This 74-nucleotide sequence from Pseudobacteroides cellulosolvens belongs to the Rfam family "tRNA". The family's RNA type in Rfam is transfer RNA. Taxonomically the source falls in Pseudobacteroides cellulosolvens (Bacteria, Eubacteriales, Oscillospiraceae, Pseudobacteroides).
[Rfam]
RNA sequence: GGCGGCGUAGCUCAGUUGGCCAGAGCAUGCGGUUCAUACCCGCAGUGUCGUUGGUUCAAAUCCGACCGCCGCUA
Numbered sequence: 001g002g003c004g005g006c007g008u009a010g011c012u013c014a015g016u017u018g019g020c021c022a023g024a025g026c027a028u029g030c031g032g033u034u035c036a037u038a039c040c041c042g043c044a045g046u047g048u049c050g051u052u053g054g055u056u057c058a059a060a061u062c063c064g065a066c067c068g069c070c071g072c073u074a
Stems, first nucleotide, its partner, number of pairs: 001073007010026004028044005050066005